[Rfam]
RNA sequence: GUAGUAGUAUUUACAUCAAUCCAUAUGUGUUGGGUGGAUUGAAGUGGAACUUGAACUAAAUUCUAUUCCAAUCCACUCCAACACAUGUGGAUUGAGGUGAAUCCGAUA
Numbered sequence: 001g002u003a004g005u006a007g008u009a010u011u012u013a014c015a016u017c018a019a020u021c022c023a024u025a026u027g028u029g030u031u032g033g034g035u036g037g038a039u040u041g042a043a044g045u046g047g048a049a050c051u052u053g054a055a056c057u058a059a060a061u062u063c064u065a066u067u068c069c070a071a072u073c074c075a076c077u078c079c080a081a082c083a084c085a086u087g088u089g090g091a092u093u094g095a096g097g098u099g100a101a102u103c104c105g106a107u108a
Stems, first nucleotide, its partner, number of pairs: 004107002007104001009102006016095017034076008044066003
MIR5565 microRNA precursor family: a 108-nucleotide sequence from Miscanthus lutarioriparius. Pairs were carried over by alignment from the consensus structure, which was predicted with RNAalifold. The match comes from Rfam's covariance-model search (96 bits).